[Rfam]
RNA sequence: CACGGUUGCCACGGGAGCCCGGUGUGCGGCCGGGCUGAGAGGCGGGUGGUGCGCCCGCGACCGUUCGCACCUGAUCCGGAUCAUGCCGGCGCAGGGAGGCCCUCGGUUUCCUCG
Dot-bracket structure: .......(((((((..(((((((.....)))))))......(((((((...)))))))..)))).....((((..((((......))))..))))..)))..............
Rfam assigns this 114-nucleotide RNA sequence from Amycolatopsis rhizosphaerae to the family "TPP riboswitch aptamer (THI element)". The family has 115 seed sequences and 16,130 matches in Rfam 15.1.